[Rfam]
This 75-nucleotide RNA sequence from Streptomyces malaysiensis belongs to the Rfam family "ASpks TB sRNA". By type it is an antisense RNA.
RNA sequence: CUUCAGCGAGCCCAGCCACAGCGGCCGGUCCUCGGCGUGCUCCUGGCCGUAGGUGGCCAGCAGCGCACCGGCCUC
Number, nucleotide and partner (000 for none) at each position: 001c000002u000003u000004c000005a000006g000007c000008g000009a000010g000011c000012c000013c000014a000015g025016c024017c023018a000019c000020a000021g000022c000023g017024g016025c015026c000027g000028g000029u000030c000031c071032u070033c000034g000035g000036c000037g000038u065039g064040c000041u000042c000043c060044u059045g058046g000047c056048c055049g054050u000051a000052g000053g000054u049055g048056g047057c000058c045059a044060g043061c000062a000063g000064c039065g038066c000067a000068c000069c000070g032071g031072c000073c000074u000075c000
It scores 80 bits against the family's covariance model. Rfam 15.1 lists 9,052 matches to the family in 683 species.